[Rfam]
RNA sequence: AGUUGAGUGUUUGAGGCCAUAGAGGAGCACUCUCAGUGCAGCCAUGUCAGAAUCCAAAGAAUCUGCAAAUUCUGCU
Numbered sequence: 001a002g003u004u005g006a007g008u009g010u011u012u013g014a015g016g017c018c019a020u021a022g023a024g025g026a027g028c029a030c031u032c033u034c035a036g037u038g039c040a041g042c043c044a045u046g047u048c049a050g051a052a053u054c055c056a057a058a059g060a061a062u063c064u065g066c067a068a069a070u071u072c073u074g075c076u
Stems, first nucleotide, its partner, number of pairs: 015043003021076002023073004027039003048065004053060002
RNA: Mammalian CPEB3 ribozyme